[Rfam]
RNA sequence: AAAUGUUAAGGGCAACCUUGGUUGAAAAACCAAGGACGCAAAGUCACCGGUCUAAGGUAAGCAGCUUGCUACUAUGACAGCGGAACCGCCAUA
Numbered sequence: 001a002a003a004u005g006u007u008a009a010g011g012g013c014a015a016c017c018u019u020g021g022u023u024g025a026a027a028a029a030c031c032a033a034g035g036a037c038g039c040a041a042a043g044u045c046a047c048c049g050g051u052c053u054a055a056g057g058u059a060a061g062c063a064g065c066u067u068g069c070u071a072c073u074a075u076g077a078c079a080g081c082g083g084a085a086c087c088g089c090c091a092u093a
Base pairs, nucleotide, nucleotide: 012039013038017034018033019032020031021030022029043086044085047083048082049081050078051077052076057072058071059070
RNA: c-di-GMP-I riboswitch aptamer